Shown here is a 260-nucleotide part of an RNA from uncultured bacterium Ak20-3, a member of the family "Bacterial large subunit ribosomal RNA".
[Rfam]
Nucleotides: 260
Stems, first nucleotide, its partner, number of pairs: 001159008011145004017045007047102005055096003062089005067082006106140003113133005162172002177255004181197005202248003205244005211237002218231005
Number, partner (000 for none) and nucleotide at each position: 001159g002158g003157a004156a005155a006154u007153u008152u009000g010000a011145g012144a013143g014142g015000a016000u017045c018044u019043g020042a021041c022040c023039u024000u025000a026000g027000u028000a029000c030000g031000a032000g033000a034000g035000g036000a037000c038000c039023g040022g041021g042020u043019u044018g045017g046000a047102c048101g049100u050099a051098c052000c053000u054000c055096u056095g057094g058000u059000g060000c061000a062089c063088c064087a065086g066085u067082u068081g069080u070079c071078a072077c073000g074000c075000c076000a077072g078071u079070g080069g081068c082067a083000c084000g085066g086065c087064u088063g089062g090000g091000u092000a093000g094057c095056u096055a097000u098051g099050u100049a101048c102047g103000g104000a105000u106140g107139g108138g109000a110000u111000a112000a113133c114132c115131g116130c117129u118000g119000a120000a121000a122000g123000c124000a125000u126000c127000u128000a129117a130116g131115u132114g133113g134000g135000a136000a137000g138108c139107c140106c141000a142014c143013c144012u145011c146000a147000a148000g149000a150000a151000u152008a153007g154006a155005u156004u157003u158002c159001c160000c161000u162172g163171g164000c165000g166000a167000a168000a169000g170000c171163c172162c173000u174000u175000a176000a177255g178254a179253c180252c181197c182196g183195u184194u185193u186000a187000a188000g189000a190000c191000u192000a193185a194184g195183a196182c197181g198000u199000u200000g201000a202248u203247a204246g205244g206243c207242u208241g209240g210000a211237g212236g213000u214000g215000g216000a217000a218231g219230c220229g221228c222227a223000g224000u225000a226000a227222u228221g229220u230219g231218u232000g233000g234000a235000g236212c237211u238000g239000a240209c241208c242207a243206g244205u245000c246204c247203u248202a249000a250000u251000u252180g253179g254178u255177c256000g257000u258000g259000a260000g